Rfam assigns this 306-nucleotide sequence from Musa acuminata to the family "Plant signal recognition particle RNA".
RNA sequence: GCCGAGCCCAAUAGCGUUGGCUUGUAACCCAAGCGGGGGCAUAAGGGUGGUGGGAUGGCGUGUUGGGCGCGAGCGGGUUGGGUGUACGUUCAAGAACUCGGCUUGCCCAUUCCAAGUCAAGUAGAUGAGCCAUAUGAUCUGGGCGAAAGCCUGAGUCACACGGGAUCCUAAAGCGGAGGACACCGCGUCAGGCUGGCUUCACAGAGCAGCGACCACCUCCCGCUCUUAACGGUGGAAGGAUAACAGGCCGUCGUACGCCACACCCAACAUGCCCACCGAGCUUACACUGACCAAACCAUCCCUCUU
Numbered sequence: 001g002c003c004g005a006g007c008c009c010a011a012u013a014g015c016g017u018u019g020g021c022u023u024g025u026a027a028c029c030c031a032a033g034c035g036g037g038g039g040c041a042u043a044a045g046g047g048u049g050g051u052g053g054g055a056u057g058g059c060g061u062g063u064u065g066g067g068c069g070c071g072a073g074c075g076g077g078u079u080g081g082g083u084g085u086a087c088g089u090u091c092a093a094g095a096a097c098u099c100g101g102c103u104u105g106c107c108c109a110u111u112c113c114a115a116g117u118c119a120a121g122u123a124g125a126u127g128a129g130c131c132a133u134a135u136g137a138u139c140u141g142g143g144c145g146a147a148a149g150c151c152u153g154a155g156u157c158a159c160a161c162g163g164g165a166u167c168c169u170a171a172a173g174c175g176g177a178g179g180a181c182a183c184c185g186c187g188u189c190a191g192g193c194u195g196g197c198u199u200c201a202c203a204g205a206g207c208a209g210c211g212a213c214c215a216c217c218u219c220c221c222g223c224u225c226u227u228a229a230c231g232g233u234g235g236a237a238g239g240a241u242a243a244c245a246g247g248c249c250g251u252c253g254u255a256c257g258c259c260a261c262a263c264c265c266a267a268c269a270u271g272c273c274c275a276c277c278g279a280g281c282u283u284a285c286a287c288u289g290a291c292c293a294a295a296c297c298a299u300c301c302c303u304c305u306u
Stems, first nucleotide, its partner, number of pairs: 001040003004023005010017001028037003043306005049300005056293002059289002061286003065282002068280001070278002075274004080265006087257003099250007107239002110237005116230002119227003123224002127167002130164002133160001135158004140153005168173001175220005186211003193204003

Clan: SRP clan.
Pairs were carried over by alignment from the consensus structure, which is taken from published work.
NCBI's taxonomy places the organism under Eukaryota, Viridiplantae, Streptophytina, Tracheophyta, Musa acuminata.
For this family Rfam cites "Kinship in the SRP RNA family" (Rosenblad et al., RNA Biol, 2009).